[Rfam]
RNA sequence: GGCGUCCGUGAUGUUGCACAGUUGUACCUACAUUGUUUGAUCCUCGUGAGAACAGCACUGACUGAGACGCUC
Numbered sequence: 001g002g003c004g005u006c007c008g009u010g011a012u013g014u015u016g017c018a019c020a021g022u023u024g025u026a027c028c029u030a031c032a033u034u035g036u037u038u039g040a041u042c043c044u045c046g047u048g049a050g051a052a053c054a055g056c057a058c059u060g061a062c063u064g065a066g067a068c069g070c071u072c
Base pairs, nucleotide, nucleotide: 001071003069004068005067006066